[Rfam]
RNA: FMN riboswitch aptamer (RFN element)
RNA sequence: GUUUUCCUUCGGGGUUGGGUGAAAUUCCCUACCGGCGGUGAUCGCAUGGCGGCGGCGGAAAAGCAUGCCGAGCAUUGCGUCAGUCCGUGACCCGGUUCUGUUCGGAGCAUGCCCUUACGGUCAUGCGCGGCGGAAACGGUGGACCUGGUGAAAUUCCGGGACCGACAGUAUAGUCUGGAUGGGAGAAGGAAACG
Numbered sequence: 001g002u003u004u005u006c007c008u009u010c011g012g013g014g015u016u017g018g019g020u021g022a023a024a025u026u027c028c029c030u031a032c033c034g035g036c037g038g039u040g041a042u043c044g045c046a047u048g049g050c051g052g053c054g055g056c057g058g059a060a061a062a063g064c065a066u067g068c069c070g071a072g073c074a075u076u077g078c079g080u081c082a083g084u085c086c087g088u089g090a091c092c093c094g095g096u097u098c099u100g101u102u103c104g105g106a107g108c109a110u111g112c113c114c115u116u117a118c119g120g121u122c123a124u125g126c127g128c129g130g131c132g133g134a135a136a137c138g139g140u141g142g143a144c145c146u147g148g149u150g151a152a153a154u155u156c157c158g159g160g161a162c163c164g165a166c167a168g169u170a171u172a173g174u175c176u177g178g179a180u181g182g183g184a185g186a187a188g189g190a191a192a193c194g
Base pairs, nucleotide, nucleotide: 003192004191005190006189007188008187009186010185017029018028019027031174032173033164034163035088036087037086038085092139093138144160145159146158147157148156166177167176168175
Dot-bracket structure: ..((((((((......(((.......))).[[((((((..............................................))))...((............................................))....(((((.......)))))..)).(((....]]))).......))))))))..